RNA sequence: GAAAUAGGUAAGACGUGUGGGUGAGAACCGUAAAGGUUCGAGUCGAGCGAAAGCGAGACAACGUUGCGCAGCAACGGCCCGAAGGGCGAGGCGAAAGCCGAGUCAUCCCGCACGACCCACCA
Numbered sequence: 001g002a003a004a005u006a007g008g009u010a011a012g013a014c015g016u017g018u019g020g021g022u023g024a025g026a027a028c029c030g031u032a033a034a035g036g037u038u039c040g041a042g043u044c045g046a047g048c049g050a051a052a053g054c055g056a057g058a059c060a061a062c063g064u065u066g067c068g069c070a071g072c073a074a075c076g077g078c079c080c081g082a083a084g085g086g087c088g089a090g091g092c093g094a095a096a097g098c099c100g101a102g103u104c105a106u107c108c109c110g111c112a113c114g115a116c117c118c119a120c121c122a
Stems, first nucleotide, its partner, number of pairs: 015113007022105001029088002037083004044055002062076006
RNA: RtT RNA